[Rfam]
RNA sequence: UUACUGGACGCUUUAGUUAUUGAACUGUUUUGUCACUCUCUGUCAAAGAACAAAUUGUUCUCUGUCAGAAAGUGACAAAACAGUUCAUUAGCUUUAGCUACGCUUUAGC
Numbered sequence: 001u002u003a004c005u006g007g008a009c010g011c012u013u014u015a016g017u018u019a020u021u022g023a024a025c026u027g028u029u030u031u032g033u034c035a036c037u038c039u040c041u042g043u044c045a046a047a048g049a050a051c052a053a054a055u056u057g058u059u060c061u062c063u064g065u066c067a068g069a070a071a072g073u074g075a076c077a078a079a080a081c082a083g084u085u086c087a088u089u090a091g092c093u094u095u096a097g098c099u100a101c102g103c104u105u106u107a108g109c
Base pairs, nucleotide, nucleotide: 001108002107003106006103011097012096015093016092017091018090019089021087022086023085024084025083026082027081028080029069030068031067032066034064035063049059050058051057052056
This 109-nucleotide RNA sequence from Plutella xylostella belongs to the Rfam family "mir-8517 microRNA precursor family". Rfam links the family to the GO terms miRNA-mediated post-transcriptional gene silencing and RISC complex. Pairs were carried over by alignment from the consensus structure, which was predicted with RNAalifold. The match comes from Rfam's covariance-model search (75 bits).